[Rfam]
RNA sequence: UACCGCCGCCCUCCUUGGGCGUUUCCUCCCUAGACUUGGGCCGCUCCGGCAACGUGAGCGGCCCCUUUCUUUUCUGCAA
Numbered sequence: 001u002a003c004c005g006c007c008g009c010c011c012u013c014c015u016u017g018g019g020c021g022u023u024u025c026c027u028c029c030c031u032a033g034a035c036u037u038g039g040g041c042c043g044c045u046c047c048g049g050c051a052a053c054g055u056g057a058g059c060g061g062c063c064c065c066u067u068u069c070u071u072u073u074c075u076g077c078a079a
Stems, first nucleotide, its partner, number of pairs: 008020004038064009

The record is a 79-nucleotide RNA sequence from Ancylobacter sp. TS-1, which matches "Makes More Granules Regulator RNA (mmgR)" in Rfam.
SuhB later renamed mmgR (makes more granules regulator) was a putative non-coding RNA found multiple times in the Agrobacterium tumefaciens genome and related alpha-proteobacteria.
The organism belongs to Ancylobacter, within Bacteria.